Background
The record is a 518-nucleotide part of an RNA from Waltiozyma pijperi, which matches "Eukaryotic small subunit ribosomal RNA" in Rfam. The base pairs follow the family's consensus structure, which is taken from published work. The family has 90 seed sequences and 75,755 matches in Rfam 15.1. The match comes from Rfam's covariance-model search (1774 bits). On this family, see Yusupov et al., Science 2001: "Crystal structure of the ribosome at 5.5 A resolution". The source organism's lineage runs through Eukaryota, Opisthokonta, Fungi, Dikarya and Waltiozyma.
RNA sequence: CAGUUAAAAAGCUCGUAGUUGAACUUUGGGUCUGGUGGGCCGGUCUACCUAUGGUACGUACUGGUUUUUCCACCGGAUCUUUCCUUCUGGGAUUCUCCCUCGGGAGUGUUUCAGAACUUUUACUUUGAAAAAAUUAGAGUGUUCAAAGCAGGCCUUUGCUCGAAUAUAUUAGCAUGGAAUAAUAGAAUAGGACUUUGGUUUUAUUUUGUUGGUUUCUAAAACCAGUGUAAUGAUUAAGAGGGACGGUCGGGGGCAUCAGUAUUAAAUAGUCAGAGGUGAAAUUCUUGGAUUUAUUUAAGACUAACUACUGCGAAAGCAUUUGCCAAGGACGUUUUCAUUAAUCAAGAACGAAAGUUAGGGGAUCGAAGAUGAUCAGAUACCGUCGUAGUCUUAACCGUAAACUAUGCCGACUAGGGAUCGGGUGUUGUUUUUAUAAUGACUCACUCGGCACCUUACGAGAAAUCAAAGUCUUUGGGUUCUGGGGGGAGUAUGGUCGCAAGGCUGAAACUUAAAGGAAU
Numbered sequence: 001c002a003g004u005u006a007a008a009a010a011g012c013u014c015g016u017a018g019u020u021g022a023a024c025u026u027u028g029g030g031u032c033u034g035g036u037g038g039g040c041c042g043g044u045c046u047a048c049c050u051a052u053g054g055u056a057c058g059u060a061c062u063g064g065u066u067u068u069u070c071c072a073c074c075g076g077a078u079c080u081u082u083c084c085u086u087c088u089g090g091g092a093u094u095c096u097c098c099c100u101c102g103g104g105a106g107u108g109u110u111u112c113a114g115a116a117c118u119u120u121u122a123c124u125u126u127g128a129a130a131a132a133a134u135u136a137g138a139g140u141g142u143u144c145a146a147a148g149c150a151g152g153c154c155u156u157u158g159c160u161c162g163a164a165u166a167u168a169u170u171a172g173c174a175u176g177g178a179a180u181a182a183u184a185g186a187a188u189a190g191g192a193c194u195u196u197g198g199u200u201u202u203a204u205u206u207u208g209u210u211g212g213u214u215u216c217u218a219a220a221a222c223c224a225g226u227g228u229a230a231u232g233a234u235u236a237a238g239a240g241g242g243a244c245g246g247u248c249g250g251g252g253g254c255a256u257c258a259g260u261a262u263u264a265a266a267u268a269g270u271c272a273g274a275g276g277u278g279a280a281a282u283u284c285u286u287g288g289a290u291u292u293a294u295u296u297a298a299g300a301c302u303a304a305c306u307a308c309u310g311c312g313a314a315a316g317c318a319u320u321u322g323c324c325a326a327g328g329a330c331g332u333u334u335u336c337a338u339u340a341a342u343c344a345a346g347a348a349c350g351a352a353a354g355u356u357a358g359g360g361g362a363u364c365g366a367a368g369a370u371g372a373u374c375a376g377a378u379a380c381c382g383u384c385g386u387a388g389u390c391u392u393a394a395c396c397g398u399a400a401a402c403u404a405u406g407c408c409g410a411c412u413a414g415g416g417a418u419c420g421g422g423u424g425u426u427g428u429u430u431u432u433a434u435a436a437u438g439a440c441u442c443a444c445u446c447g448g449c450a451c452c453u454u455a456c457g458a459g460a461a462a463u464c465a466a467a468g469u470c471u472u473u474g475g476g477u478u479c480u481g482g483g484g485g486g487a488g489u490a491u492g493g494u495c496g497c498a499a500g501g502c503u504g505a506a507a508c509u510u511a512a513a514g515g516a517a518u
Stems, first nucleotide, its partner, number of pairs: 001481003009478001011349001013347002018342003240336004244331002247328002252324004258302002262298008273284003310317002354395006364388001368384004406477003409470003413453003418448007427440003457464002483510003492503004